The family of this 84-nucleotide RNA sequence from Bambusicola thoracicus is "Small nucleolar RNA snR60/Z15/Z230/Z193/J17". Its family is annotated with nucleolus and RNA processing in the Gene Ontology. The pairing is the family consensus, mapped onto this sequence. By type it is a C/D-box small nucleolar RNA.

RNA sequence: AGGCUGUGUAUGAUGACUGCAUAGUUCAGCAGAUAACUUGUGAUGAUCACUCUACUAGUCUUUCGCUCCUAUCUGAUGCAGCCU
Number, nucleotide and partner (000 for none) at each position: 001a000002g000003g000004c081005u080006g079007u078008g077009u000010a000011u000012g000013a000014u000015g000016a000017c000018u000019g000020c000021a000022u000023a000024g000025u000026u000027c000028a000029g000030c000031a000032g000033a000034u000035a000036a000037c000038u000039u000040g000041u000042g000043a000044u000045g000046a000047u000048c000049a000050c000051u000052c000053u000054a000055c000056u000057a000058g000059u000060c000061u000062u000063u000064c000065g000066c000067u000068c000069c000070u000071a000072u000073c000074u000075g000076a000077u008078g007079c006080a005081g004082c000083c000084u000